[Rfam]
RNA sequence: CCUGACAUCUUACUUGGCAGCAUUCGAUGUGUUUCCAUAUUCAAAUACUGCCUGGUAAUGAUGCCAGU
Numbered sequence: 001c002c003u004g005a006c007a008u009c010u011u012a013c014u015u016g017g018c019a020g021c022a023u024u025c026g027a028u029g030u031g032u033u034u035c036c037a038u039a040u041u042c043a044a045a046u047a048c049u050g051c052c053u054g055g056u057a058a059u060g061a062u063g064c065c066a067g068u
Stems, first nucleotide, its partner, number of pairs: 002067003006063004010058005016052005022046003026042002
RNA: mir-8/mir-141/mir-200 microRNA precursor family
Organism: Branchiostoma belcheri